The record is a 76-nucleotide RNA sequence from Crocodylus porosus, which matches "Mammalian CPEB3 ribozyme" in Rfam. The family's consensus secondary structure is taken from published work.
RNA sequence: GGUCACAAGUUUGAGGCUACAGCAGAAGUACUCACAGCGCAGCCCGGUCAGAUACCACGAAUUUGCGAAUUCUGCU
Dot-bracket structure: ............[.[[[[..(((((((((.........))]]]]]...(((((.(...).)))))....)))))))